The family of this 104-nucleotide RNA from Oceanobacillus profundus is "TPP riboswitch aptamer (THI element)". The organism belongs to Oceanobacillus, within Bacteria. It scores 64 bits against the family's covariance model. Its family is annotated with thiamine pyrophosphate binding in the Gene Ontology. The family's consensus secondary structure is taken from published work.
Nucleotides: 104
Stems, first nucleotide, its partner, number of pairs: 006092004011053004017026002033047002036044002059084004065078004
Number, partner (000 for none) and nucleotide at each position: 001000a002000a003000u004000a005000c006092g007091c008090a009089c010000u011053a012052g013051g014050g015000g016000a017026g018025c019000u020000g021000c022000u023000u024000u025018g026017c027000u028000g029000a030000g031000a032000a033047a034046g035000a036044c037043g038000u039000u040000u041000c042000g043037c044036g045000c046034c047033u048000g049000a050014c051013c052012c053011u054000u055000u056000g057000a058000a059084c060083c061082c062081g063000a064000a065078u066077u067076a068075g069000a070000u071000a072000a073000u074000a075068c076067u077066a078065g079000c080000g081062u082061g083060g084059g085000g086000a087000a088000u089009g090008u091007g092006c093000a094000g095000u096000c097000g098000a099000c100000a101000a102000u103000g104000g